[Rfam]
Background
This 103-nucleotide sequence from Pseudoselenomonas ruminantium belongs to the Rfam family "SAM riboswitch aptamer (S box leader)". Pairs were carried over by alignment from the consensus structure, which is taken from published work. The source organism's lineage runs through Bacteria, Bacillati, Negativicutes, Selenomonadaceae and Pseudoselenomonas.
RNA sequence: AACUCAUCCAGAGCAGUGGAGGGAUAGGCCCAAUGAAGCUGCGGCAACCAUCGCAAAAGCGAAACGGUGCCAAUUCCUUUAGGCAAAGCCUAUAAGAUGAGAG
Numbered sequence: 001a002a003c004u005c006a007u008c009c010a011g012a013g014c015a016g017u018g019g020a021g022g023g024a025u026a027g028g029c030c031c032a033a034u035g036a037a038g039c040u041g042c043g044g045c046a047a048c049c050a051u052c053g054c055a056a057a058a059g060c061g062a063a064a065c066g067g068u069g070c071c072a073a074u075u076c077c078u079u080u081a082g083g084c085a086a087a088g089c090c091u092a093u094a095a096g097a098u099g100a101g102a103g
Stems, first nucleotide, its partner, number of pairs: 003101006013042005021031003026078003043071004048067002051062003075095001080092005